A member of the RNA family "Archaeal small subunit ribosomal RNA" from Klebsormidium nitens, 600 nucleotides of a longer RNA. Lineage of the source: Eukaryota > Viridiplantae > Streptophyta > Klebsormidiales > Klebsormidium. The family is grouped with related families in Rfam's "SSU clan". Its family is annotated with ribosome and structural constituent of ribosome in the Gene Ontology. The literature on the family includes a 2002 paper in BMC Bioinformatics by Cannone et al., "The comparative RNA web (CRW) site: an online database of comparative sequence and structure information for ribosomal, intron, and other RNAs". It scores 726 bits against the family's covariance model.

RNA sequence: UCGUCCCUAGUUGCAAAGUGCGGCUUGUUCAUCAAGCUGUUCACAGAACUCUAGGGAGACUGCCGGCGAUAUGCCGGAUGAAAGUGGGGAUAAAACAAAAGGCGCGAAAAGCAACUCCCACUAGGGAGGAAAGCGAAAAGCUCAAAAAAAGAGUUUUAGCCAGAGCAAUCAACUCUUUUUUUGAGCAAGGCCACGCGCCCUUACUUGACAUUGUCCCCGUGCAUGGUAACAUGCAAGAACAAAACUGGGUGAAUUGCAAAGACAACCUUCUACAGCUUUCUUAUAGUUGCUGAGAAGGUCAAUCUGCAGCGAAGCAUACCGAACGGAAAAGGCCUUAUGGUUCAUUUGUGAACCGUAGGCUUAUAGGAGUAGGUUUGAACGUUCAACGACUAGAGAGUGAGGAUAUCCUACCAAUAAACUCUCCACGAGCGCCCGGCAACUCUUACAAAAAACAACAUAGCAGAAACGGAAAGCUAAAUGAGAUCUUUUUUUCACCCUUCUUGUUCCUAAUACGCCCCGCCAUACAUACAGUAUACUCGCUUUCUUUUCAUUCAUAACGCAUGAUAUACAAAACACCACCCUGGAUCUUAGGUACAUUAU
Numbered sequence: 001u002c003g004u005c006c007c008u009a010g011u012u013g014c015a016a017a018g019u020g021c022g023g024c025u026u027g028u029u030c031a032u033c034a035a036g037c038u039g040u041u042c043a044c045a046g047a048a049c050u051c052u053a054g055g056g057a058g059a060c061u062g063c064c065g066g067c068g069a070u071a072u073g074c075c076g077g078a079u080g081a082a083a084g085u086g087g088g089g090a091u092a093a094a095a096c097a098a099a100a101g102g103c104g105c106g107a108a109a110a111g112c113a114a115c116u117c118c119c120a121c122u123a124g125g126g127a128g129g130a131a132a133g134c135g136a137a138a139a140g141c142u143c144a145a146a147a148a149a150a151g152a153g154u155u156u157u158a159g160c161c162a163g164a165g166c167a168a169u170c171a172a173c174u175c176u177u178u179u180u181u182u183g184a185g186c187a188a189g190g191c192c193a194c195g196c197g198c199c200c201u202u203a204c205u206u207g208a209c210a211u212u213g214u215c216c217c218c219g220u221g222c223a224u225g226g227u228a229a230c231a232u233g234c235a236a237g238a239a240c241a242a243a244a245c246u247g248g249g250u251g252a253a254u255u256g257c258a259a260a261g262a263c264a265a266c267c268u269u270c271u272a273c274a275g276c277u278u279u280c281u282u283a284u285a286g287u288u289g290c291u292g293a294g295a296a297g298g299u300c301a302a303u304c305u306g307c308a309g310c311g312a313a314g315c316a317u318a319c320c321g322a323a324c325g326g327a328a329a330a331g332g333c334c335u336u337a338u339g340g341u342u343c344a345u346u347u348g349u350g351a352a353c354c355g356u357a358g359g360c361u362u363a364u365a366g367g368a369g370u371a372g373g374u375u376u377g378a379a380c381g382u383u384c385a386a387c388g389a390c391u392a393g394a395g396a397g398u399g400a401g402g403a404u405a406u407c408c409u410a411c412c413a414a415u416a417a418a419c420u421c422u423c424c425a426c427g428a429g430c431g432c433c434c435g436g437c438a439a440c441u442c443u444u445a446c447a448a449a450a451a452a453c454a455a456c457a458u459a460g461c462a463g464a465a466a467c468g469g470a471a472a473g474c475u476a477a478a479u480g481a482g483a484u485c486u487u488u489u490u491u492u493c494a495c496c497c498u499u500c501u502u503g504u505u506c507c508u509a510a511u512a513c514g515c516c517c518c519g520c521c522a523u524a525c526a527u528a529c530a531g532u533a534u535a536c537u538c539g540c541u542u543u544c545u546u547u548u549c550a551u552u553c554a555u556a557a558c559g560c561a562u563g564a565u566a567u568a569c570a571a572a573a574c575a576c577c578a579c580c581c582u583g584g585a586u587c588u589u590a591g592g593u594a595c596a597u598u599a600u
Base pairs, nucleotide, nucleotide: 004057005056006055007054008053009052010051014046018044019043020042021039022038023037024036025035026034027033